[Rfam]
RNA sequence: CGAUAAUGCGGGCGAGAACCCGCCACCCGAAAAACUAAGGUUUUCCAAGCUAUGUCUAAUCACUGUGGGUUAGUCUGGACACUAAGGCGAACACGAAAGGGACAGUCGAUGGCGAACGUGAGUUAAUAUUCCCGUACUUCUUUAUUGCUGUGUUUGGGCUGACGGAGUGAUGAAAGCGCCGCGACUGGACGGAUGUUCUGUUGAAGUUACCUAGCUAUUUGUUUAUAGGCAAAUCUAAACGGAUUGUGUAAUGCGAUAGUUACUCGGAGUCUCUUCGGAUCAAAGAGGAUAGUGCGCCUAAGGGCUUCCAAGAAAAACCUCAAACUUCUAGGCAAUUAAGACCGCAGUUACCGUAAACCGACACAGUAGUGCAGGAUGAGAAUCCCUAAGUGCU
Number, nucleotide and partner (000 for none) at each position: 001c000002g000003a000004u000005a000006a000007u000008g023009c022010g021011g020012g019013c000014g000015a000016g000017a000018a000019c012020c011021c010022g009023c008024c000025a000026c000027c390028c000029g000030a000031a000032a000033a000034a370035c369036u368037a000038a000039g352040g351041u000042u000043u000044u068045c067046c000047a000048a064049g063050c000051u000052a000053u000054g060055u000056c000057u000058a000059a000060u054061c000062a000063c049064u048065g000066u000067g045068g044069g000070u000071u000072a000073g000074u000075c347076u346077g345078g343079a000080c112081a000082c111083u000084a000085a000086g107087g106088c105089g000090a000091a000092c101093a000094c099095g000096a000097a000098a000099g094100g000101g092102a000103c000104a000105g088106u087107c086108g000109a000110u000111g082112g080113c000114g000115a000116a135117c134118g133119u000120g131121a000122g000123u000124u000125a000126a000127u000128a000129u000130u000131c120132c000133c118134g117135u116136a000137c000138u000139u341140c340141u339142u338143u000144a336145u335146u334147g333148c332149u000150g000151u000152g325153u000154u000155u322156g321157g320158g319159c000160u317161g000162a000163c000164g308165g307166a306167g305168u000169g000170a000171u300172g299173a000174a000175a000176g295177c294178g293179c292180c000181g201182c200183g199184a000185c000186u000187g000188g000189a000190c000191g000192g000193a000194u000195g000196u000197u000198c000199u183200g182201u181202u268203g000204a000205a000206g263207u262208u000209a260210c000211c000212u000213a000214g254215c253216u000217a000218u243219u242220u241221g240222u239223u238224u237225a000226u000227a000228g236229g235230c000231a000232a000233a000234u000235c229236u228237a224238a223239a222240c221241g220242g219243a218244u000245u000246g000247u000248g000249u000250a000251a000252u000253g215254c214255g000256a000257u000258a000259g000260u209261u000262a207263c206264u000265c000266g000267g000268a202269g000270u288271c287272u286273c285274u284275u283276c000277g000278g000279a000280u000281c000282a000283a275284a274285g273286a272287g271288g270289a000290u000291a000292g179293u178294g177295c176296g000297c000298c000299u172300a171301a000302g000303g000304g000305c167306u166307u165308c164309c000310a000311a000312g000313a000314a000315a000316a000317a160318c000319c158320u157321c156322a155323a000324a000325c152326u000327u000328c000329u000330a000331g000332g148333c147334a146335a145336u144337u000338a142339a141340g140341a139342c000343c078344g000345c077346a076347g075348u000349u000350a000351c040352c039353g000354u000355a000356a000357a000358c366359c000360g000361a000362c000363a000364c000365a000366g358367u000368a036369g035370u034371g000372c000373a000374g385375g384376a383377u000378g000379a000380g000381a000382a000383u376384c375385c374386c000387u000388a000389a000390g027391u000392g000393c000394u000
About this RNA:
Bacterial large subunit ribosomal RNA: a 394-nucleotide part of an RNA. The family has 102 seed sequences and 51,934 matches in Rfam 15.1. The family's consensus secondary structure is taken from published work. A search with the family's covariance model found it, with a score of 1388 bits.